[Rfam]
RNA sequence: UUGGCCGUGAACUUCCACUGGUCGUUCGACUCCAGCAGCACCUCGUAGCUGUAGUGGUCGCCAUCGGCCAGCACCGCGAGCACCGUCUGCUCGCCGUACUUGCUGGUGCCGAUCUUGUUCACCUUGCCGUGGGCGAUGAGGACGAUGGAGUCGGCCUCCUGGCCGGCCUGGGUGAUGACCUCACCGGCCUUGUACUCCUUCUGCUCGAAGCGGUUGGCCAGGGCGAGCAGCACCUCGGGGUCCUCGAAGCCGCGCAGCAGCGGCAGCUCGCGGAGCUCCUGGGGGAUGACCUGCACCCGCGCGCCGGUGCUGGUGAAGGUCACGCGGCCAUCGCCCACGUUGUAGCUCAGGCGCCGGUUGAGCCGGAACACGCCGCCGUUGACCUGCACCCAGGGCAGCAGCUUGAGCAGCCACCGGGUGGAGAUACCCUGCAUCUGCGGGGUGGACUUGGUCGUCGUCGCCAGCUGGCGCGCCGCCUCCGUCCCAAGGCUCAUCUGCUGCUUCCGG
Numbered sequence: 001u002u003g004g005c006c007g008u009g010a011a012c013u014u015c016c017a018c019u020g021g022u023c024g025u026u027c028g029a030c031u032c033c034a035g036c037a038g039c040a041c042c043u044c045g046u047a048g049c050u051g052u053a054g055u056g057g058u059c060g061c062c063a064u065c066g067g068c069c070a071g072c073a074c075c076g077c078g079a080g081c082a083c084c085g086u087c088u089g090c091u092c093g094c095c096g097u098a099c100u101u102g103c104u105g106g107u108g109c110c111g112a113u114c115u116u117g118u119u120c121a122c123c124u125u126g127c128c129g130u131g132g133g134c135g136a137u138g139a140g141g142a143c144g145a146u147g148g149a150g151u152c153g154g155c156c157u158c159c160u161g162g163c164c165g166g167c168c169u170g171g172g173u174g175a176u177g178a179c180c181u182c183a184c185c186g187g188c189c190u191u192g193u194a195c196u197c198c199u200u201c202u203g204c205u206c207g208a209a210g211c212g213g214u215u216g217g218c219c220a221g222g223g224c225g226a227g228c229a230g231c232a233c234c235u236c237g238g239g240g241u242c243c244u245c246g247a248a249g250c251c252g253c254g255c256a257g258c259a260g261c262g263g264c265a266g267c268u269c270g271c272g273g274a275g276c277u278c279c280u281g282g283g284g285g286a287u288g289a290c291c292u293g294c295a296c297c298c299g300c301g302c303g304c305c306g307g308u309g310c311u312g313g314u315g316a317a318g319g320u321c322a323c324g325c326g327g328c329c330a331u332c333g334c335c336c337a338c339g340u341u342g343u344a345g346c347u348c349a350g351g352c353g354c355c356g357g358u359u360g361a362g363c364c365g366g367a368a369c370a371c372g373c374c375g376c377c378g379u380u381g382a383c384c385u386g387c388a389c390c391c392a393g394g395g396c397a398g399c400a401g402c403u404u405g406a407g408c409a410g411c412c413a414c415c416g417g418g419u420g421g422a423g424a425u426a427c428c429c430u431g432c433a434u435c436u437g438c439g440g441g442g443u444g445g446a447c448u449u450g451g452u453c454g455u456c457g458u459c460g461c462c463a464g465c466u467g468g469c470g471c472g473c474c475g476c477c478u479c480c481g482u483c484c485c486a487a488g489g490c491u492c493a494u495c496u497g498c499u500g501c502u503u504c505c506g507g
Base pairs, nucleotide, nucleotide: 007389008388009387011385014382015381018324019322020321021320022319023318025316026315032313033312034311035310036309037308039306044303045302046301048300049299051233052232055229056228058226059225060224061223065111066110067109068108077102078101079100080099082097083096085094086093118221119220122217123216127212130209131206132205133204134203135202138199140197144195150191154189156187157186160183166173167172237294240290241289242288244286245285250282251281252280254278256277257276258275260271261270262269329342330341332339351379352378353377355375356374357373391431392430393429394428395427397425399423403418404417407415437476438475439474440473442471443470444469448464449463450462451461452460477507478506481501482500485497487496488495

Rfam assigns this 507-nucleotide RNA sequence from Archangium sp. Cb G35 to the family "Saccharopolyspora sRNA 350". It is annotated as an antisense RNA. Gene Ontology term of the family: regulation of secondary metabolite biosynthetic process. The family's consensus secondary structure was predicted with RNAfold. It scores 168 bits against the family's covariance model.